[Rfam]
Shown here is a 68-nucleotide sequence, a member of the family "L2-Alphaproteobacteria ribosomal protein leader".
The family's RNA type in Rfam is cis-regulatory leader.
For this family Rfam cites "Discovery of 20 novel ribosomal leader candidates in bacteria and archaea" (Eckert and Weinberg, BMC Microbiol, 2020).
RNA sequence: UGGCACCUACGGGGGCCUCAAACAUCGCGGCGGGCAAACCUGCCGCAUUGCUAAACGGAAGACAGAAA
Numbered sequence: 001u002g003g004c005a006c007c008u009a010c011g012g013g014g015g016c017c018u019c020a021a022a023c024a025u026c027g028c029g030g031c032g033g034g035c036a037a038a039c040c041u042g043c044c045g046c047a048u049u050g051c052u053a054a055a056c057g058g059a060a061g062a063c064a065g066a067a068a
Stems, first nucleotide, its partner, number of pairs: 002017003006014003028045006